[Rfam]
RNA sequence: UCAUCACCAUCAUCGUCCUAAAUAGUCUUUCAGGAGGAGUGGUUUAUUUUCUGGAAGACUUUCUUCCAGGAGUGCCGUAAAGAUUUACAUAAGACCCUUGGAAGAAUAAAACGGAUACUUCCAAGGGUUUUUAAU
Numbered sequence: 001u002c003a004u005c006a007c008c009a010u011c012a013u014c015g016u017c018c019u020a021a022a023u024a025g026u027c028u029u030u031c032a033g034g035a036g037g038a039g040u041g042g043u044u045u046a047u048u049u050u051c052u053g054g055a056a057g058a059c060u061u062u063c064u065u066c067c068a069g070g071a072g073u074g075c076c077g078u079a080a081a082g083a084u085u086u087a088c089a090u091a092a093g094a095c096c097c098u099u100g101g102a103a104g105a106a107u108a109a110a111a112c113g114g115a116u117a118c119u120u121c122c123a124a125g126g127g128u129u130u131u132u133a134a135u
Base pairs, nucleotide, nucleotide: 009049011039017034018033019032021030051069052068053067054066055065056064057063058062091131092130093129094128095127096126097125098124099123100122101121102120103119104118
Shown here is a 135-nucleotide RNA sequence from Ruminobacter amylophilus, a member of the family "Histidine operon leader".
The literature on the family includes a 1982 paper in Annu Rev Genet by Kolter and Yanofsky, "Attenuation in amino acid biosynthetic operons".
Rfam links the family to the GO term histidine biosynthetic process.
From the family's description: At least 6 amino acid operons are known to be regulated by attenuation. In each a leader sequence of 150-200 bp is found upstream of the first gene in the operon. This leader sequence can assume two different secondary structures known as the terminator and the anti-terminator structure.
Lineage of the source: Bacteria > Pseudomonadota > Gammaproteobacteria > Succinivibrionaceae > Ruminobacter.
It scores 68 bits against the family's covariance model.